[Rfam]
The record is a 117-nucleotide sequence from Myotis lucifugus, which matches "mir-9193 microRNA precursor family" in Rfam.
The source organism's lineage runs through Eukaryota, Chordata, Craniata, Vertebrata and Myotis.
The family has 2 seed sequences and 6,008 matches in Rfam 15.1.
RNA sequence: CGUGAACUGGUGGGGUCCCUUGGCCUAGCCUGCACCCUCUAGCAAUCCAGGACCCCUCGGACUGCUGGUUUCAGCCUGAUCCCCGCAGGCCAGGCCAAGGGACCCCACCGGUGCACG
Numbered sequence: 001c002g003u004g005a006a007c008u009g010g011u012g013g014g015g016u017c018c019c020u021u022g023g024c025c026u027a028g029c030c031u032g033c034a035c036c037c038u039c040u041a042g043c044a045a046u047c048c049a050g051g052a053c054c055c056c057u058c059g060g061a062c063u064g065c066u067g068g069u070u071u072c073a074g075c076c077u078g079a080u081c082c083c084c085g086c087a088g089g090c091c092a093g094g095c096c097a098a099g100g101g102a103c104c105c106c107a108c109c110g111g112u113g114c115a116c117g
Base pairs, nucleotide, nucleotide: 003115004114006112008110009109010108012106013105014104015103016102017101018100019099020098021097022096023095024094025093028090029089030088031087032086033085